[Rfam]
RNA: ASpks TB sRNA
Organism: Streptomyces fuscichromogenes
RNA sequence: CUUCAGUGACCCCAGCCACAACGGCCGUUCCCGGCCCUGACCGUACGUCGCCAGAAUCGCCUGCGCCUC
Numbered sequence: 001c002u003u004c005a006g007u008g009a010c011c012c013c014a015g016c017c018a019c020a021a022c023g024g025c026c027g028u029u030c031c032c033g034g035c036c037c038u039g040a041c042c043g044u045a046c047g048u049c050g051c052c053a054g055a056a057u058c059g060c061c062u063g064c065g066c067c068u069c
Stems, first nucleotide, its partner, number of pairs: 015025003031065001032059002037054003041050001043048001